[Rfam]
RNA sequence: UGAUAAAAGAGUCAAAAGUCAAAAAUGAGUUUUAACUUGUUAAAAUCUCAUUUUGGCUUAGGACUCCAAACAAUAUGAGGAAGAUUGAUUUUUGUUAAAAAAUCAAGUGAUUCCGAAUAUUGUUUAAAACAUCCUGAGAGUGAAACGAAAGGAUGUUUUUAUCA
Number, nucleotide and partner (000 for none) at each position: 001u164002g163003a162004u161005a160006a159007a158008a000009g000010a065011g064012u063013c062014a000015a000016a059017a058018g057019u056020c055021a054022a000023a053024a052025a051026u050027g049028a048029g047030u000031u044032u043033u042034a041035a040036c000037u000038u000039g000040u035041u034042a033043a032044a031045a000046u000047c029048u028049c027050a026051u025052u024053u023054u021055g020056g019057c018058u017059u016060a000061g000062g013063a012064c011065u010066c000067c000068a000069a124070a123071c122072a121073a120074u119075a118076u117077g000078a000079g114080g113081a112082a111083g000084a000085u000086u105087g104088a103089u102090u101091u100092u099093u000094g000095u000096u000097a000098a000099a092100a091101a090102a089103u088104c087105a086106a000107g000108u000109g000110a000111u082112u081113c080114c079115g000116a000117a076118u075119a074120u073121u072122g071123u070124u069125u000126a000127a000128a000129a156130c155131a154132u153133c152134c151135u150136g000137a000138g000139a000140g146141u145142g000143a000144a000145a141146c140147g000148a000149a000150a135151g134152g133153a132154u131155g130156u129157u000158u007159u006160u005161a004162u003163c002164a001
About this RNA:
This 164-nucleotide RNA from Pseudobutyrivibrio ruminis belongs to the Rfam family "Clostridiales-1 RNA". A search with the family's covariance model found it, with a score of 86 bits. The source organism's lineage runs through Bacteria, Bacillati, Lachnospirales, Lachnospiraceae and Pseudobutyrivibrio. By type it is a small RNA.